Rfam assigns this 55-nucleotide RNA sequence from Liquorilactobacillus vini to the family "pemK RNA". Lineage of the source: Bacteria > Bacilli > Lactobacillales > Lactobacillaceae > Liquorilactobacillus vini.

RNA sequence: AUAAUGAUACUUCCGCGAGGCUCCCACGUAAGCAGGAGAGGUGAAAUUCCUAUGU
Numbered sequence: 001a002u003a004a005u006g007a008u009a010c011u012u013c014c015g016c017g018a019g020g021c022u023c024c025c026a027c028g029u030a031a032g033c034a035g036g037a038g039a040g041g042u043g044a045a046a047u048u049c050c051u052a053u054g055u
Stems, first nucleotide, its partner, number of pairs: 012052001013020002021038003027032001039051003